[Rfam]
Description
Rfam assigns this 75-nucleotide RNA sequence from Haemonchus placei to the family "mir-5928 microRNA precursor family".

RNA sequence: GGUCCAAAUUUGAAGUAAAGUCAAUUAGUACGAUCAUCUGACCAUACUAAUGUACUCUACUUCAAGUUUGCGCCC
Numbered sequence: 001g002g003u004c005c006a007a008a009u010u011u012g013a014a015g016u017a018a019a020g021u022c023a024a025u026u027a028g029u030a031c032g033a034u035c036a037u038c039u040g041a042c043c044a045u046a047c048u049a050a051u052g053u054a055c056u057c058u059a060c061u062u063c064a065a066g067u068u069u070g071c072g073c074c075c
Stems, first nucleotide, its partner, number of pairs: 001074003005070005011064007019056003025050006032043001034041002